Rfam assigns this 84-nucleotide sequence from Burkholderiales bacterium PBB6 to the family "SucA RNA motif". The source organism's lineage runs through Bacteria, Pseudomonadati, Pseudomonadota, Betaproteobacteria and Burkholderiales. For this family Rfam cites "Identification of 22 candidate structured RNAs in bacteria using the CMfinder comparative genomics pipeline" (Weinberg et al., Nucleic Acids Res, 2007). Pairs were carried over by alignment from the consensus structure, which is taken from published work.

[Rfam]
RNA sequence: UCGCAAUCCGCCUACCGGUAGAGCCGGGCCGCGGAAGGUUGUUCAACCCAUCGGAGCUCUGGAAACCGGAGCAAAAGGUGAGCG
Numbered sequence: 001u002c003g004c005a006a007u008c009c010g011c012c013u014a015c016c017g018g019u020a021g022a023g024c025c026g027g028g029c030c031g032c033g034g035a036a037g038g039u040u041g042u043u044c045a046a047c048c049c050a051u052c053g054g055a056g057c058u059c060u061g062g063a064a065a066c067c068g069g070a071g072c073a074a075a076a077g078g079u080g081a082g083c084g
Base pairs, nucleotide, nucleotide: 002084003083004082007035008034009033010032011031016026017025018024019023037048038047039046040045049080050079051078052077056072057071058070059069060068061067062066
Overview: The family's RNA type in Rfam is cis-regulatory element. Its family is annotated with regulation of translation in the Gene Ontology.